The family of this 169-nucleotide part of an RNA from Pseudolycoriella hygida is "Eukaryotic small subunit ribosomal RNA".
Gene Ontology terms of the family: structural constituent of ribosome and ribosome.
It scores 1695 bits against the family's covariance model.
RNA sequence: CCGCCCGUCGCUACUACCGAUUGAAUUGUUUAGUGAGGUCUCCGGACGUGAUCGCUGCGACGCCUCGUUGUGUUGCAGUUGCUUCACAGAAGUUGACCGAACUUGGUUAUUUAGAGGAAGUAAAAGUCGUAACAAGGUUUCCGUAGGUGAACCUGCGGAAGGAUCAUUA
Numbered sequence: 001c002c003g004c005c006c007g008u009c010g011c012u013a014c015u016a017c018c019g020a021u022u023g024a025a026u027u028g029u030u031u032a033g034u035g036a037g038g039u040c041u042c043c044g045g046a047c048g049u050g051a052u053c054g055c056u057g058c059g060a061c062g063c064c065u066c067g068u069u070g071u072g073u074u075g076c077a078g079u080u081g082c083u084u085c086a087c088a089g090a091a092g093u094u095g096a097c098c099g100a101a102c103u104u105g106g107u108u109a110u111u112u113a114g115a116g117g118a119a120g121u122a123a124a125a126g127u128c129g130u131a132a133c134a135a136g137g138u139u140u141c142c143g144u145a146g147g148u149g150a151a152c153c154u155g156c157g158g159a160a161g162g163a164u165c166a167u168u169a
Base pairs, nucleotide, nucleotide: 001136003133006129007128009126012122013121014120015119017117018116021113023112024111025110026109028107029106030105032103033102034101037098038097039096040095043092048087049086050085051084054079055078056077057076058075060073061072062071063070138161139160140159141158142157143156144155145154146153147152